The family of this 48-nucleotide RNA from Microvirga brassicacearum is "Guanidine-II riboswitch aptamer (mini-ykkC)". The match comes from Rfam's covariance-model search (39 bits). The organism belongs to Microvirga, within Bacteria. Simpler in structure and has fewer highly conserved nucleotide positions than the ykkC-yxkD leader. Despite this each of its two stem-loop structures directly bind free guanidine. Therefore, mini-ykkC RNA motif represents a distinct class of guanidine-sensing RNAs.

RNA sequence: GCAAGGGGACGACCCCCUGUUUCCCGAUGAUCGGUAGGGACGGCCCUG
Numbered sequence: 001g002c003a004a005g006g007g008g009a010c011g012a013c014c015c016c017c018u019g020u021u022u023c024c025c026g027a028u029g030a031u032c033g034g035u036a037g038g039g040a041c042g043g044c045c046c047u048g
Base pairs, nucleotide, nucleotide: 001020002019003018005016006015007014008013035048036047037046038045039044